[Rfam]
RNA: gabT RNA
RNA sequence: GGUGGCCUGAAGCUGCAGCAGUCGAUCAUCGUAUGCUGUUGCAGUUGACCCAGGCCGCU
Numbered sequence: 001g002g003u004g005g006c007c008u009g010a011a012g013c014u015g016c017a018g019c020a021g022u023c024g025a026u027c028a029u030c031g032u033a034u035g036c037u038g039u040u041g042c043a044g045u046u047g048a049c050c051c052a053g054g055c056c057g058c059u
Stems, first nucleotide, its partner, number of pairs: 001059006011046012023031002